[Rfam]
Shown here is a 256-nucleotide RNA sequence from Desulfosoma caldarium, a member of the family "Bacterial large signal recognition particle RNA".
RNA sequence: UCGUGCUAGGCGGGGAGCUAGCGGUUCCCUGAACCCGAAAUCCGCUCAGCGGGGCCGAACUCCCUUUCGAGGGAUCGGCUGGGGGGCCCGUACGGAACUGCUUCACCGGUCGGACACCUCGCAACAGACGGAUGUGAACCCCGUCAGGUCCGGAAGGAAGCAGCGGUAAGCAUUGCGGUCUGUGUCGAGGUCUAUUCUGAUUGGGUGAGGCAGGAAAGGCGGGUCGGCACCAGGCGACUCGACAAAGGGUGCACGA
Numbered sequence: 001u002c003g004u005g006c007u008a009g010g011c012g013g014g015g016a017g018c019u020a021g022c023g024g025u026u027c028c029c030u031g032a033a034c035c036c037g038a039a040a041u042c043c044g045c046u047c048a049g050c051g052g053g054g055c056c057g058a059a060c061u062c063c064c065u066u067u068c069g070a071g072g073g074a075u076c077g078g079c080u081g082g083g084g085g086g087c088c089c090g091u092a093c094g095g096a097a098c099u100g101c102u103u104c105a106c107c108g109g110u111c112g113g114a115c116a117c118c119u120c121g122c123a124a125c126a127g128a129c130g131g132a133u134g135u136g137a138a139c140c141c142c143g144u145c146a147g148g149u150c151c152g153g154a155a156g157g158a159a160g161c162a163g164c165g166g167u168a169a170g171c172a173u174u175g176c177g178g179u180c181u182g183u184g185u186c187g188a189g190g191u192c193u194a195u196u197c198u199g200a201u202u203g204g205g206u207g208a209g210g211c212a213g214g215a216a217a218g219g220c221g222g223g224u225c226g227g228c229a230c231c232a233g234g235c236g237a238c239u240c241g242a243c244a245a246a247g248g249g250u251g252c253a254c255g256a
Stems, first nucleotide, its partner, number of pairs: 001256006009056003012030008034053004062249006071240003075237003079233004084228001088227002090224002093221002098214002100211003107203008116191006122184002125182005131174005141166004149158003
The match comes from Rfam's covariance-model search (147 bits).
For this family Rfam cites "SRPDB: Signal Recognition Particle Database" (Rosenblad et al., Nucleic Acids Res, 2003).
NCBI's taxonomy places the organism under Bacteria, Pseudomonadati, Thermodesulfobacteriota, Syntrophobacteraceae, Desulfosoma.
Its Rfam clan is "SRP clan".